[Rfam]
RNA sequence: GUCAACCACCCCUCGGCUGAAAAGCGAGGGGCUUGAAGGGAAACUUUAGGCCCAGUUGAUUAGCCUAAGCUCUUUUAGGGCUACGUUACAUUGGAAUAUAUAGUCAUCUUGGGGUACUCCACACGCUCCAGGCACUGAGGUCGGUGAUUAAACAUUUCUGAGGGUAGGAAAAGUGUUGCCGGUACAAAACCCUUUGUAACAUUGGCGAAGUGGAUCACUC
Numbered sequence: 001g002u003c004a005a006c007c008a009c010c011c012c013u014c015g016g017c018u019g020a021a022a023a024g025c026g027a028g029g030g031g032c033u034u035g036a037a038g039g040g041a042a043a044c045u046u047u048a049g050g051c052c053c054a055g056u057u058g059a060u061u062a063g064c065c066u067a068a069g070c071u072c073u074u075u076u077a078g079g080g081c082u083a084c085g086u087u088a089c090a091u092u093g094g095a096a097u098a099u100a101u102a103g104u105c106a107u108c109u110u111g112g113g114g115u116a117c118u119c120c121a122c123a124c125g126c127u128c129c130a131g132g133c134a135c136u137g138a139g140g141u142c143g144g145u146g147a148u149u150a151a152a153c154a155u156u157u158c159u160g161a162g163g164g165u166a167g168g169a170a171a172a173g174u175g176u177u178g179c180c181g182g183u184a185c186a187a188a189a190c191c192c193u194u195u196g197u198a199a200c201a202u203u204g205g206c207g208a209a210g211u212g213g214a215u216c217a218c219u220c
Stems, first nucleotide, its partner, number of pairs: 001060006010031002012028002016025002032050007063206003067202001068082005085200006093192002104138002108132008118214005140183009152174002155171004159166002
Description:
This 220-nucleotide RNA from Desulfobacter latus belongs to the Rfam family "HNH endonuclease-associated RNA and ORF (HEARO) RNA". By type it is a non-coding RNA gene. The source organism's lineage runs through Bacteria, Pseudomonadati, Desulfobacterales, Desulfobacteraceae and Desulfobacter. Rfam 15.1 lists 952 matches to the family in 249 species.